[Rfam]
RNA sequence: GCCGGGAUUUUAACAAGAUCCUGUAAUCCGUGUGGAGGCGUCAAGAAAGAUGAAUUGGAGGGAUUUCUGAUCAGCAGGGGGACAACUAUAUGAUAAAUCAAUCUGGUGUAGAACUUGGGUCAACUCCGUAGUAUUCAGUACAGGAUACAACAAAGUUGUUAGAGACUUGCACACUGGCGAGGUCGGAAACGAAGCAGCUAAAUGUAAGCGUCCGAGUUAGUAUAGCAGAACGUUGAUCUAAAGAUAGCCGCUGGGGUCAGGAUUUCUAAACCGAAACUUCCUUUU
Number, nucleotide and partner (000 for none) at each position: 001g039002c038003c037004g022005g021006g020007a019008u018009u017010u016011u015012a000013a000014c000015a011016a010017g009018a008019u007020c006021c005022u004023g000024u000025a000026a000027u036028c035029c034030g000031u000032g000033u000034g029035g028036a027037g003038g002039c001040g000041u000042c000043a000044a285045g284046a283047a282048a000049g280050a279051u000052g000053a000054a000055u274056u273057g271058g000059a267060g266061g265062g264063a263064u262065u000066u000067c260068u259069g258070a257071u000072c000073a000074g000075c253076a252077g251078g000079g249080g000081g000082a000083c000084a000085a000086c247087u246088a245089u244090a000091u000092g000093a000094u240095a239096a000097a237098u236099c235100a233101a000102u000103c228104u227105g000106g000107u224108g223109u222110a221111g000112a218113a217114c216115u215116u214117g213118g212119g211120u210121c158122a157123a156124c155125u154126c000127c000128g151129u150130a000131g148132u147133a146134u145135u144136c143137a000138g000139u000140a000141c000142a000143g136144g135145a134146u133147a132148c131149a000150a129151c128152a000153a000154a125155g124156u123157u122158g121159u163160u000161a000162g000163a159164g000165a000166c208167u207168u206169g205170c204171a203172c000173a000174c000175u200176g199177g198178c197179g000180a000181g000182g000183u192184c191185g190186g000187a000188a000189a000190c185191g184192a183193a000194g000195c000196a000197g178198c177199u176200a175201a000202a000203u171204g170205u169206a168207a167208g166209c000210g120211u119212c118213c117214g116215a115216g114217u113218u112219a000220g000221u110222a109223u108224a107225g000226c000227a104228g103229a000230a000231c000232g000233u100234u000235g099236a098237u097238c000239u095240a094241a000242a000243g000244a089245u088246a087247g086248c000249c079250g000251c077252u076253g075254g000255g000256g000257u070258c069259a068260g067261g000262a064263u063264u062265u061266c060267u059268a000269a000270a000271c057272c000273g056274a055275a000276a000277c000278u000279u050280c049281c000282u047283u046284u045285u044

This 285-nucleotide RNA sequence from Polysphondylium violaceum belongs to the Rfam family "Metazoan signal recognition particle RNA".
It scores 80 bits against the family's covariance model.
Pairs were carried over by alignment from the consensus structure, which is taken from published work.
Rfam classes the family as a non-coding RNA gene.
Rfam links the family to the GO terms SRP-dependent cotranslational protein targeting to membrane, signal sequence recognition and signal recognition particle, endoplasmic reticulum targeting.